[Rfam]
RNA sequence: AACUAUCUUUGCGUUAGGGAUUGAAGUGGAAAUCCUUUUUUAAUUUUUGUUUGAGUAAAUUUGCUUUUAGGCAAAUUUGUAUCGAAAACAAAUUAAAAAAGAUUGCAAUGUAAAGCCCGCUCGAAC
Dot-bracket structure: ................(((.((...((...((((..((((((((((...........................................)))))))))).))))...))...)).)))........
Numbered sequence: 001a002a003c004u005a006u007c008u009u010u011g012c013g014u015u016a017g018g019g020a021u022u023g024a025a026g027u028g029g030a031a032a033u034c035c036u037u038u039u040u041u042a043a044u045u046u047u048u049g050u051u052u053g054a055g056u057a058a059a060u061u062u063g064c065u066u067u068u069a070g071g072c073a074a075a076u077u078u079g080u081a082u083c084g085a086a087a088a089c090a091a092a093u094u095a096a097a098a099a100a101g102a103u104u105g106c107a108a109u110g111u112a113a114a115g116c117c118c119g120c121u122c123g124a125a126c
Stems, first nucleotide, its partner, number of pairs: 017118003021114002026109002031104004037099010

Description:
Flavo-1 RNA: a 126-nucleotide sequence from Polaribacter sp. WD7. The match comes from Rfam's covariance-model search (53 bits). The organism belongs to Polaribacter, within Bacteria.